[Rfam]
RNA: RAGATH-30 RNA
RNA sequence: GUAAAAAUAAGAAUUUUAUCGAUAUUGCUCGUGUAGUCGAGAACUGCCAAGUGGCAGCAA
Numbered sequence: 001g002u003a004a005a006a007a008u009a010a011g012a013a014u015u016u017u018a019u020c021g022a023u024a025u026u027g028c029u030c031g032u033g034u035a036g037u038c039g040a041g042a043a044c045u046g047c048c049a050a051g052u053g054g055c056a057g058c059a060a
Base pairs, nucleotide, nucleotide: 028041029040030039031038044057045056046055047054048053